[Rfam]
RNA sequence: AUACUUACCUGGCAGGGGAGACACCAUGAUCAGGCAGGUGGGUUUCCCAGGGCCAGGCUCAUCCCUUGCACUCUGGGUGUGCUGACCCCUGUGAUUUCCCCAAAUGUGGGAGGCUUGACUGCAUAAUUUGUGGUACUGGGGCACAGUGUUGGAGCUCUCCCCUC
Dot-bracket structure: ...........((((((((((..((((..........)))).))))))((((...(((.(((((..........))))).)))...)))).((((((.((.......)).))).))).))))...............((((.(.(((......))).)))))..
The record is a 164-nucleotide sequence from Rhodinocichla rosea, which matches "U1 spliceosomal RNA" in Rfam. The source organism's lineage runs through Eukaryota, Sarcopterygii, Dipnotetrapodomorpha, Saurischia and Rhodinocichla. Pairs were carried over by alignment from the consensus structure, which is taken from published work. A search with the family's covariance model found it, with a score of 132 bits. The family's RNA type in Rfam is spliceosomal small nuclear RNA.